[Rfam]
RNA sequence: CACCAGGCGUAAAAUACAUUCGGGCUUUGCGCUUCAAAGGCGCUCCUUCAAGGGAGCACCUAGUGCCUGACCCCGGUCAGGCGCAACACCGUCCAAUUGCGGGGACUCCCUAAAGCUCGUGCACACCAAACGGUGCGGGGAAACCCCACCGCGGCCAGGCCAAUCACCUGGGUAUGGUAAAAGCGGCAUGAGAUGAAGGCGCCAGCGCCUGAAAUGGGUGAUCCGCAGCCAAGUCCUACCGAGCCCGGCUCCGAGCCCGGUUCCACGGAUGCAGUUCACAGACUAAAUGGCGGUGGGUUCCAAAUGGAGCUUAAGAUAUAGUCGGACCACCUCGAGAGAGGUUC
Dot-bracket structure: ....(((((((((............)))))))))...(((....))).......................................(((((.(....((((((....(((.........................................................................................................)))...))))))((...((((....(((((.............)))))...))))...))...[.[[[[[...).))))).(((((....)))))........]]]]]]....(((((....)))))..
Numbered sequence: 001c002a003c004c005a006g007g008c009g010u011a012a013a014a015u016a017c018a019u020u021c022g023g024g025c026u027u028u029g030c031g032c033u034u035c036a037a038a039g040g041c042g043c044u045c046c047u048u049c050a051a052g053g054g055a056g057c058a059c060c061u062a063g064u065g066c067c068u069g070a071c072c073c074c075g076g077u078c079a080g081g082c083g084c085a086a087c088a089c090c091g092u093c094c095a096a097u098u099g100c101g102g103g104g105a106c107u108c109c110c111u112a113a114a115g116c117u118c119g120u121g122c123a124c125a126c127c128a129a130a131c132g133g134u135g136c137g138g139g140g141a142a143a144c145c146c147c148a149c150c151g152c153g154g155c156c157a158g159g160c161c162a163a164u165c166a167c168c169u170g171g172g173u174a175u176g177g178u179a180a181a182a183g184c185g186g187c188a189u190g191a192g193a194u195g196a197a198g199g200c201g202c203c204a205g206c207g208c209c210u211g212a213a214a215u216g217g218g219u220g221a222u223c224c225g226c227a228g229c230c231a232a233g234u235c236c237u238a239c240c241g242a243g244c245c246c247g248g249c250u251c252c253g254a255g256c257c258c259g260g261u262u263c264c265a266c267g268g269a270u271g272c273a274g275u276u277c278a279c280a281g282a283c284u285a286a287a288u289g290g291c292g293g294u295g296g297g298u299u300c301c302a303a304a305u306g307g308a309g310c311u312u313a314a315g316a317u318a319u320a321g322u323c324g325g326a327c328c329a330c331c332u333c334g335a336g337a338g339a340g341g342u343u344c
Stems, first nucleotide, its partner, number of pairs: 005034009038047003087295005093289001098227006108218003228275002233270004241263005279324001281323005297310005329342005